Source information: This 78-nucleotide sequence from Teladorsagia circumcincta belongs to the Rfam family "SmY spliceosomal RNA". Rfam classes the family as a spliceosomal small nuclear RNA. The match comes from Rfam's covariance-model search (43 bits). The base pairs follow the family's consensus structure, which is taken from published work. The literature on the family includes a 2006 paper in Genome Res by Deng et al., "Organization of the Caenorhabditis elegans small non-coding transcriptome: genomic features, biogenesis, and expression". The organism belongs to Teladorsagia, within Eukaryota.

RNA sequence: UGAAAUCUUAAUUUCUUGAGAGGGCCUUCCGUAAGACCCUACGCUUCAAUUUUUGGGUGCUCCUACGAAGUAGGAGCU
Numbered sequence: 001u002g003a004a005a006u007c008u009u010a011a012u013u014u015c016u017u018g019a020g021a022g023g024g025c026c027u028u029c030c031g032u033a034a035g036a037c038c039c040u041a042c043g044c045u046u047c048a049a050u051u052u053u054u055g056g057g058u059g060c061u062c063c064u065a066c067g068a069a070g071u072a073g074g075a076g077c078u
Stems, first nucleotide, its partner, number of pairs: 022039003026035003059077008
Dot-bracket structure: .....................(((.(((....))).)))...................((((((((...)))))))).